[Rfam]
RNA sequence: GGGUGCUGCUCCUGCACGGGGUGGGGGCAGCAGGUGUUGCGCAGGUCGGGCCGCCGCG
Numbered sequence: 001g002g003g004u005g006c007u008g009c010u011c012c013u014g015c016a017c018g019g020g021g022u023g024g025g026g027g028c029a030g031c032a033g034g035u036g037u038u039g040c041g042c043a044g045g046u047c048g049g050g051c052c053g054c055c056g057c058g
Base pairs, nucleotide, nucleotide: 005031006030007029008028009027010026011025012024013023014022040058041057042056044055045054046053
RNA: nhaA-I RNA